[Rfam]
Small nucleolar RNA snoR53Y: a 75-nucleotide RNA from Salix viminalis. The source organism's lineage runs through Eukaryota, Tracheophyta, Euphyllophyta, Salicaceae and Salix. Rfam classes the family as a C/D-box small nucleolar RNA. Its Rfam clan is "snoR53 clan".

RNA sequence: GUUCCCAGUGAUGCUCAACCAUGCUAAUGCUGAUCAUUGAUGACAUAACUCUUUCUUAAUAUUGCUGAGGGAACA
Numbered sequence: 001g002u003u004c005c006c007a008g009u010g011a012u013g014c015u016c017a018a019c020c021a022u023g024c025u026a027a028u029g030c031u032g033a034u035c036a037u038u039g040a041u042g043a044c045a046u047a048a049c050u051c052u053u054u055c056u057u058a059a060u061a062u063u064g065c066u067g068a069g070g071g072a073a074c075a
Stems, first nucleotide, its partner, number of pairs: 001074005